[Rfam]
RNA sequence: CUUGCCGAGGAGCGCUGCGACCCACCGAACCUGUGCGGGCCAGGCUCGGCAACCGAUCAACGGCGCUCACAAACC
Dot-bracket structure: .(((((((............(((.(.........).)))......))))))).......................